RNA sequence: GGUCCCUGUCGGGCAUCUGUCUGCCCGCAGGCCUGCCUCGCCGCUGCUCUGAAGGAGGCAGGGGCUGGGCCUGCGGCUGCCUGGGCAGGGCUG
Dot-bracket structure: ....(((((((((((.((((..((((((...((((((((.(............))))))))).)).))))..)))).)))))).)))))....

Description:
A member of the RNA family "mir-346 microRNA precursor family" from Molossus molossus, 93 nucleotides long. Rfam 15.1 lists 127 matches to the family in 126 species. It scores 93 bits against the family's covariance model. The base pairs follow the family's consensus structure, which was predicted with RNAalifold.